Source information:
Rfam assigns this 408-nucleotide RNA sequence from Rhodohalobacter mucosus to the family "Bacterial RNase P class A". Ribonuclease P (RNase P) is a ubiquitous endoribonuclease, found in archaea, bacteria and eukarya as well as chloroplasts and mitochondria.
RNA sequence: AAAUGCUUCCGGGCAAUCGCUCACCGCUUUUGGCGGUGGGAGGAAAGUCCGAACACCAGCGGGUACCGUGCUUCCUAACGGGAAGGUCUCUGCGUUUGACGCAGGGAACAGACAGUGCCACAGAAAACAGACUUCCUUUUGAUGCGGAGGGUGAGGGUUAGCCCUCAUCCGUUGAUGCACCGGAAGGUAAAGGUGAAAAGGUGAGGUAAGAGCUCACCGUCGCUGCCGGUGACGGCAGUGUGCAUGGAAAACCUCACGGGGUGCAAGUUCACGCAGGCUGUGUGCCACCCGUCACAAUACAGCCGGGUAGAACGCUCAGAUCUUUCGGGUGACCGAAAGGCCAGAUAAAUGAUUGCCAUCCCGACACACAUCGGGAUACAGAAUUCGGCUUACAGGAAGCAUUUAACA
Numbered sequence: 001a002a003a004u005g006c007u008u009c010c011g012g013g014c015a016a017u018c019g020c021u022c023a024c025c026g027c028u029u030u031u032g033g034c035g036g037u038g039g040g041a042g043g044a045a046a047g048u049c050c051g052a053a054c055a056c057c058a059g060c061g062g063g064u065a066c067c068g069u070g071c072u073u074c075c076u077a078a079c080g081g082g083a084a085g086g087u088c089u090c091u092g093c094g095u096u097u098g099a100c101g102c103a104g105g106g107a108a109c110a111g112a113c114a115g116u117g118c119c120a121c122a123g124a125a126a127a128c129a130g131a132c133u134u135c136c137u138u139u140u141g142a143u144g145c146g147g148a149g150g151g152u153g154a155g156g157g158u159u160a161g162c163c164c165u166c167a168u169c170c171g172u173u174g175a176u177g178c179a180c181c182g183g184a185a186g187g188u189a190a191a192g193g194u195g196a197a198a199a200g201g202u203g204a205g206g207u208a209a210g211a212g213c214u215c216a217c218c219g220u221c222g223c224u225g226c227c228g229g230u231g232a233c234g235g236c237a238g239u240g241u242g243c244a245u246g247g248a249a250a251a252c253c254u255c256a257c258g259g260g261g262u263g264c265a266a267g268u269u270c271a272c273g274c275a276g277g278c279u280g281u282g283u284g285c286c287a288c289c290c291g292u293c294a295c296a297a298u299a300c301a302g303c304c305g306g307g308u309a310g311a312a313c314g315c316u317c318a319g320a321u322c323u324u325u326c327g328g329g330u331g332a333c334c335g336a337a338a339g340g341c342c343a344g345a346u347a348a349a350u351g352a353u354u355g356c357c358a359u360c361c362c363g364a365c366a367c368a369c370a371u372c373g374g375g376a377u378a379c380a381g382a383a384u385u386c387g388g389c390u391u392a393c394a395g396g397a398a399g400c401a402u403u404u405a406a407c408a
Base pairs, nucleotide, nucleotide: 001404002403003402004401005400006399007398008397009396010395011393012357013356014355015354016353017352018351020040021039022038023037024036025035026034027033028032045391046390047389049388050387051386052385053384054263055262056261057260061290062289063288064287066259067258068257069256070255071085072084073083074082075081086109087107088106089105090104091103092102093101094100110254111253115252116251118247119246132192133191135187136186137185138184139183140182141181200218201217202216203215204214205213219243221240222239223238224237225236226235227234228233267313268312269311270310276304277303278302279301280300281299321340322339323338324337325336326335327334328333